Shown here is a 229-nucleotide sequence from Yinghuangia soli, a member of the family "Actinobacteria sRNA Ms_IGR-5". The literature on the family includes a 2013 paper in RNA by Li et al., "Identification of small RNAs in Mycobacterium smegmatis using heterologous Hfq".
RNA sequence: ACACGGGAAAGGAGGUGGUUCGAUCUUAUGUGUAGCAAUCGGACGCGUGAGGUGGCUGCCCGCUAGCCGCCACUCCGGUCUCCCGACCGAAGUCUGACCCGCAACGAGUGCACCGUUGCGGAAGGUGUCAGGCGGUCGGCGAAAACCAGGCAGACACCCGACCCGCAGGCUGCCGAGGACGUCCCCUCGGCCCCCUCCCCAGUGAGGGAAGGCCUGCGGGUCGCUGCUU
Numbered sequence: 001a002c003a004c005g006g007g008a009a010a011g012g013a014g015g016u017g018g019u020u021c022g023a024u025c026u027u028a029u030g031u032g033u034a035g036c037a038a039u040c041g042g043a044c045g046c047g048u049g050a051g052g053u054g055g056c057u058g059c060c061c062g063c064u065a066g067c068c069g070c071c072a073c074u075c076c077g078g079u080c081u082c083c084c085g086a087c088c089g090a091a092g093u094c095u096g097a098c099c100c101g102c103a104a105c106g107a108g109u110g111c112a113c114c115g116u117u118g119c120g121g122a123a124g125g126u127g128u129c130a131g132g133c134g135g136u137c138g139g140c141g142a143a144a145a146c147c148a149g150g151c152a153g154a155c156a157c158c159c160g161a162c163c164c165g166c167a168g169g170c171u172g173c174c175g176a177g178g179a180c181g182u183c184c185c186c187u188c189g190g191c192c193c194c195c196u197c198c199c200c201a202g203u204g205a206g207g208g209a210a211g212g213c214c215u216g217c218g219g220g221u222c223g224c225u226g227c228u229u
Stems, first nucleotide, its partner, number of pairs: 014060006061141004066136002069133003159223013173190006